[Rfam]
This 444-nucleotide part of an RNA from Cohaesibacter gelatinilyticus belongs to the Rfam family "Bacterial large subunit ribosomal RNA".
RNA sequence: CUCCGCGAAAUCUAUUUAGGUAGAGCGUUGAAUGAAUACCUCAGGGGGUAGAGCACUGAAUGGGCUAGGGGGACUCACCGUCUUACCAAACCUAAUCAAACUCCGAAUACCUGAGAGUACUAUUCAGCAGACACACUGCGGGUGCUAACGUCCGUAGUGGAGAGGGCAACAACCCUGACCGCCAGUUAAGGUCCCUAAGUCAUGGCUAAGUGGGAAAGGAUGUGAGGAUCCCAAAACAACCAGGAUGUUGGCUUAGAAGCAGCCAUCAUUUAAAGAAAGCGUAACAGCUCACUGGUCUAAACAAGGGUCUUUGCGCCGAAAAUGUACCGGGGCUAAAGCCAUGCACCGAAGCUGCGGGUGCACGUAAGUGCGCGGUAGCGGAGCGUUCUGUAGGCUGAUGAAGGGAUACCUGUGAGGGGUCCUGGAGGUAUCAGAAGUGCGAAU
Numbered sequence: 001c002u003c004c005g006c007g008a009a010a011u012c013u014a015u016u017u018a019g020g021u022a023g024a025g026c027g028u029u030g031a032a033u034g035a036a037u038a039c040c041u042c043a044g045g046g047g048g049u050a051g052a053g054c055a056c057u058g059a060a061u062g063g064g065c066u067a068g069g070g071g072g073a074c075u076c077a078c079c080g081u082c083u084u085a086c087c088a089a090a091c092c093u094a095a096u097c098a099a100a101c102u103c104c105g106a107a108u109a110c111c112u113g114a115g116a117g118u119a120c121u122a123u124u125c126a127g128c129a130g131a132c133a134c135a136c137u138g139c140g141g142g143u144g145c146u147a148a149c150g151u152c153c154g155u156a157g158u159g160g161a162g163a164g165g166g167c168a169a170c171a172a173c174c175c176u177g178a179c180c181g182c183c184a185g186u187u188a189a190g191g192u193c194c195c196u197a198a199g200u201c202a203u204g205g206c207u208a209a210g211u212g213g214g215a216a217a218g219g220a221u222g223u224g225a226g227g228a229u230c231c232c233a234a235a236a237c238a239a240c241c242a243g244g245a246u247g248u249u250g251g252c253u254u255a256g257a258a259g260c261a262g263c264c265a266u267c268a269u270u271u272a273a274a275g276a277a278a279g280c281g282u283a284a285c286a287g288c289u290c291a292c293u294g295g296u297c298u299a300a301a302c303a304a305g306g307g308u309c310u311u312u313g314c315g316c317c318g319a320a321a322a323u324g325u326a327c328c329g330g331g332g333c334u335a336a337a338g339c340c341a342u343g344c345a346c347c348g349a350a351g352c353u354g355c356g357g358g359u360g361c362a363c364g365u366a367a368g369u370g371c372g373c374g375g376u377a378g379c380g381g382a383g384c385g386u387u388c389u390g391u392a393g394g395c396u397g398a399u400g401a402a403g404g405g406a407u408a409c410c411u412g413u414g415a416g417g418g419g420u421c422c423u424g425g426a427g428g429u430a431u432c433a434g435a436a437g438u439g440c441g442a443a444u
Base pairs, nucleotide, nucleotide: 001383002382003381004380005379006378011024012023013022014021015020026130027128028127029126030125031124032123033122036121040115041114042113043112044111045110051104052102053101057098058097059096061094062093063092064091068087069086070084071083072082073081074080134159135158136157137156138155139154140153141152142151143150164175165174166173179357180356181355182354184353185352186351190347191346192345199344201343202342203341204340205339206338218317219316222314223313224312225311226310227309228308229307230306231305239296240295241294242293243292245269246268247267250264251263252262270274275290279288280287358373359372360371361370362369363368384439386436387435388434389433390432394429395428396427403423404422405421406420407419409418410417411416
Taxonomically the source falls in Cohaesibacter (Bacteria, Pseudomonadati, Hyphomicrobiales, Cohaesibacteraceae). Rfam links the family to the GO terms structural constituent of ribosome and ribosome.